Notes
A member of the RNA family "Potassium channel RNA editing signal" from Echeneis naucrates, 114 nucleotides long. From the family's description: This family represents a group of sequences related to the human potassium channel Kv1.1 hairpin element which directs the efficient modification of an adenosine to inosine by an adenosine deaminase acting on RNA (ADAR). The ADAR modification causes an isoleucine/valine recoding event which lies in the ion-conducting pore of the potassium channel. It is thought that this editing event targets the process of fast inactivation and allows a more rapid recovery from inactivation at negative potentials.

RNA sequence: GUCGGCUACGGUGAUAUGGUUCCAACUACCAUCGGCGGCAAGAUAGUGGGCUCCCUCUGCGCUAUCGCAGGUGUGCUGACCAUUGCCUUGCCAGUGCCUGUCAUCGUGUCCAAC
Numbered sequence: 001g002u003c004g005g006c007u008a009c010g011g012u013g014a015u016a017u018g019g020u021u022c023c024a025a026c027u028a029c030c031a032u033c034g035g036c037g038g039c040a041a042g043a044u045a046g047u048g049g050g051c052u053c054c055c056u057c058u059g060c061g062c063u064a065u066c067g068c069a070g071g072u073g074u075g076c077u078g079a080c081c082a083u084u085g086c087c088u089u090g091c092c093a094g095u096g097c098c099u100g101u102c103a104u105c106g107u108g109u110c111c112a113a114c
Stems, first nucleotide, its partner, number of pairs: 001114002004111002007108005013102004018097001021094001037077004049063003
It scores 110 bits against the family's covariance model.